RNA sequence: UGCAUAGAUACGACUUUUAGAGUACUUCUAAAAAGUAUCUAUGCGCUAGUCUUCAUGGACCAUAUAGAUAGGAGCGCGUAGUAGGAUACCUUACUAUGUGCUUUUUCUUUUUA
Numbered sequence: 001u002g003c004a005u006a007g008a009u010a011c012g013a014c015u016u017u018u019a020g021a022g023u024a025c026u027u028c029u030a031a032a033a034a035g036u037a038u039c040u041a042u043g044c045g046c047u048a049g050u051c052u053u054c055a056u057g058g059a060c061c062a063u064a065u066a067g068a069u070a071g072g073a074g075c076g077c078g079u080a081g082u083a084g085g086a087u088a089c090c091u092u093a094c095u096a097u098g099u100g101c102u103u104u105u106u107c108u109u110u111u112u113a
Stems, first nucleotide, its partner, number of pairs: 001045011015033006073102013
Dot-bracket structure: (((((((((((...((((((.......)))))).)))))))))))...........................(((((((((((((....)))))))))))))...........
Shown here is a 113-nucleotide RNA sequence from Streptococcus minor, a member of the family "trpB ncRNA motif". The match comes from Rfam's covariance-model search (74 bits). A reference for the family is Narunsky et al. (2024), "The discovery of novel noncoding RNAs in 50 bacterial genomes", Nucleic Acids Res. Rfam's curators write: trpB ncRNA motif was reported as a strong cis regulatory motif candidate, with potential to be a cis regulatory riboswitch type, it have been identified in Firmicutes and Fusobacteria. The motif have been recognised upstream of an uncharacterized ABC transporter with strong homology to amino acid transporters. It is also occasionally located upstream of trpB gene, that codes for a tryptophan synthase. Gene Ontology term of the family: regulation of gene expression. It is annotated as a cis-regulatory element.